[Rfam]
RNA sequence: UAACCCUGCGGAAUGCUCAGGUCCGCCGCAUCUCCUGGGUCCGUAGGGUUCGGCCGGCCGGAGCGCGGUUGAGUGGCCUCCUCGUUAGCGCCGCGUUUCGGCCGGCCACCCA
Numbered sequence: 001u002a003a004c005c006c007u008g009c010g011g012a013a014u015g016c017u018c019a020g021g022u023c024c025g026c027c028g029c030a031u032c033u034c035c036u037g038g039g040u041c042c043g044u045a046g047g048g049u050u051c052g053g054c055c056g057g058c059c060g061g062a063g064c065g066c067g068g069u070u071g072a073g074u075g076g077c078c079u080c081c082u083c084g085u086u087a088g089c090g091c092c093g094c095g096u097u098u099c100g101g102c103c104g105g106c107c108a109c110c111c112a
Stems, first nucleotide, its partner, number of pairs: 003049008016039006052107011

The family of this 112-nucleotide RNA sequence from Methyloceanibacter sp. is "EcpR1". Pairs were carried over by alignment from the consensus structure, which was predicted with WAR. Gene Ontology terms of the family: mRNA binding, negative regulation of cell cycle and regulation of translation in response to stress. Rfam describes the family as follows. Perviously named SmelC291, SmrC10, or Sra33. According to its overproduction phenotype it was renamed Elongated Cell Phenotype RNA1. Induced by stress,EcpR1 negatively regulates cell cycle master regulatory genes dnaA and gcrA at post-transcriptional level by base pairing between its strongly conserved GC-rich loop and the target mRNAs. It's regulation is hfq-independent but requires RNase E to regulate dnaA. Lineage of the source: Bacteria > Pseudomonadati > Pseudomonadota > Hyphomicrobiaceae > Methyloceanibacter. Rfam classes the family as a small RNA. For this family Rfam cites "Deep sequencing uncovers numerous small RNAs on all four replicons of the plant pathogen Agrobacterium tumefaciens" (Wilms et al., RNA Biol, 2012).